Rfam assigns this 62-nucleotide RNA sequence from Paenibacillus sp. TCA20 to the family "Streptococcus sRNA SpF59 (ldcC RNA)". A search with the family's covariance model found it, with a score of 66 bits. Rfam classes the family as a small RNA. The source organism's lineage runs through Bacteria, Bacillati, Bacillota, Paenibacillaceae and Paenibacillus.
[Rfam]
RNA sequence: UGACCACUCCUACGAUAAAGGUAGGACGUUAAGGCCACACGGACAGCCGGGUCAAAUGCCGA
Numbered sequence: 001u002g003a004c005c006a007c008u009c010c011u012a013c014g015a016u017a018a019a020g021g022u023a024g025g026a027c028g029u030u031a032a033g034g035c036c037a038c039a040c041g042g043a044c045a046g047c048c049g050g051g052u053c054a055a056a057u058g059c060c061g062a
Base pairs, nucleotide, nucleotide: 001054002053003052004051005050006029007028008026009025010024011023012022013021